Background
This 61-nucleotide sequence from Hevea brasiliensis belongs to the Rfam family "Plastid-psbA-4 3UTR RNA". The family is grouped with related families in Rfam's "Plastid-psbA 3UTR RNA clan". Plastid psbA-4 is a non-coding RNA (ncRNA) present in plastids. It was identified in inverted repeat sequences in the 3 prime untranslate region (3UTR) of photosystem II quinone-binding protein (psbA). The organism belongs to Hevea, within Eukaryota.

[Rfam]
RNA sequence: AAAAAAACAGAGCAAUAUCCAAUUUCUUGUUCUAUCAAGAGGAUUGGUAUUGCUCCUUUUU
Numbered sequence: 001a002a003a004a005a006a007a008c009a010g011a012g013c014a015a016u017a018u019c020c021a022a023u024u025u026c027u028u029g030u031u032c033u034a035u036c037a038a039g040a041g042g043a044u045u046g047g048u049a050u051u052g053c054u055c056c057u058u059u060u061u
Base pairs, nucleotide, nucleotide: 006059007058010055011054012053013052014051015050016049017048021044024041025040026039027038028037029036